[Rfam]
RNA sequence: GAUAACCAAAAAUAGUCGCAGGAUUUAAACUAGGAUCGGUGACGACUCGCACAGCUUGGAUAUUGACAUCGUAGAGUCCACCAAAGAACAUUGCUUUAGCAACUAAUGCUAAUGCACCUAGGCCUAAAAACAAGAGAUGAUGCCCUAAGAUAAUUCCUAGUUGUUGAGGAUCAUCCCA
Numbered sequence: 001g002a003u004a005a006c007c008a009a010a011a012a013u014a015g016u017c018g019c020a021g022g023a024u025u026u027a028a029a030c031u032a033g034g035a036u037c038g039g040u041g042a043c044g045a046c047u048c049g050c051a052c053a054g055c056u057u058g059g060a061u062a063u064u065g066a067c068a069u070c071g072u073a074g075a076g077u078c079c080a081c082c083a084a085a086g087a088a089c090a091u092u093g094c095u096u097u098a099g100c101a102a103c104u105a106a107u108g109c110u111a112a113u114g115c116a117c118c119u120a121g122g123c124c125u126a127a128a129a130a131c132a133a134g135a136g137a138u139g140a141u142g143c144c145c146u147a148a149g150a151u152a153a154u155u156c157c158u159a160g161u162u163g164u165u166g167a168g169g170a171u172c173a174u175c176c177c178a
Base pairs, nucleotide, nucleotide: 136175137174138173139172140171141170144169145168146167148165
This 178-nucleotide RNA sequence from Pleurocapsa sp. CCALA 161 belongs to the Rfam family "Antisense RNA which regulates isiA expression". The source organism's lineage runs through Bacteria, Cyanophyceae, Pleurocapsales, Pleurocapsaceae and Pleurocapsa. The match comes from Rfam's covariance-model search (115 bits).